[Rfam]
A member of the RNA family "Small nucleolar RNA snR43" from Candida maltosa, 204 nucleotides long. The family's RNA type in Rfam is H/ACA-box small nucleolar RNA. The family's consensus secondary structure is taken from published work. The match comes from Rfam's covariance-model search (122 bits). Its Rfam clan is "SNORA9 clan". Gene Ontology terms of the family: RNA processing and nucleolus. Taxonomically the source falls in Candida maltosa (Eukaryota, Opisthokonta, Dikarya, saccharomyceta). The literature on the family includes a 1996 paper in Cell by Balakin et al., "The RNA world of the nucleolus: two major families of small RNAs defined by different box elements with related functions".

RNA sequence: AGCUCCUAUUUCUGCCCCAAAUUCAUUGUCAGUAGAAUUAUGGGUUCUGGUGACGGAGGAAAUCAAGCCAUAUGACGGGCAUUCACUACUUUUGAUACAACCAGUGUUUGUUUUGUUGUAUGGAUCGUGCAAUGGCUUUGUAUCCGUGGCAUGGUUUAUUGUUUGUUAAGAUAUUCAAUAGACCGGAUCGGCUGUGCUAUAUUU
Numbered sequence: 001a002g003c004u005c006c007u008a009u010u011u012c013u014g015c016c017c018c019a020a021a022u023u024c025a026u027u028g029u030c031a032g033u034a035g036a037a038u039u040a041u042g043g044g045u046u047c048u049g050g051u052g053a054c055g056g057a058g059g060a061a062a063u064c065a066a067g068c069c070a071u072a073u074g075a076c077g078g079g080c081a082u083u084c085a086c087u088a089c090u091u092u093u094g095a096u097a098c099a100a101c102c103a104g105u106g107u108u109u110g111u112u113u114u115g116u117u118g119u120a121u122g123g124a125u126c127g128u129g130c131a132a133u134g135g136c137u138u139u140g141u142a143u144c145c146g147u148g149g150c151a152u153g154g155u156u157u158a159u160u161g162u163u164u165g166u167u168a169a170g171a172u173a174u175u176c177a178a179u180a181g182a183c184c185g186g187a188u189c190g191g192c193u194g195u196g197c198u199a200u201a202u203u204u
Stems, first nucleotide, its partner, number of pairs: 003058004016044004020039005068123012080110002084106004129197003134193004148184002152180001155177001160173005